[Rfam]
RNA sequence: GCAUGGAUGAAUUCUGCACUGGCUUUCCUCAGUAGCUGAUGCAGUCAGACACCAUGCCAGAGCAAAUUCCUUUAUUCCCACUGUGCCUAGUGUGCUUUUCCAUGGCACUGGGCAUGCCCUUGGAAGGGGAGCACACCA
Numbered sequence: 001g002c003a004u005g006g007a008u009g010a011a012u013u014c015u016g017c018a019c020u021g022g023c024u025u026u027c028c029u030c031a032g033u034a035g036c037u038g039a040u041g042c043a044g045u046c047a048g049a050c051a052c053c054a055u056g057c058c059a060g061a062g063c064a065a066a067u068u069c070c071u072u073u074a075u076u077c078c079c080a081c082u083g084u085g086c087c088u089a090g091u092g093u094g095c096u097u098u099u100c101c102a103u104g105g106c107a108c109u110g111g112g113c114a115u116g117c118c119c120u121u122g123g124a125a126g127g128g129g130a131g132c133a134c135a136c137c138a
Stems, first nucleotide, its partner, number of pairs: 001057006014044005070131003073127001075125004090117008
Dot-bracket structure: ((((((.......(((((.....................))))).......))))))............((((.((((...........((((((((............))))))))....)))).).))).......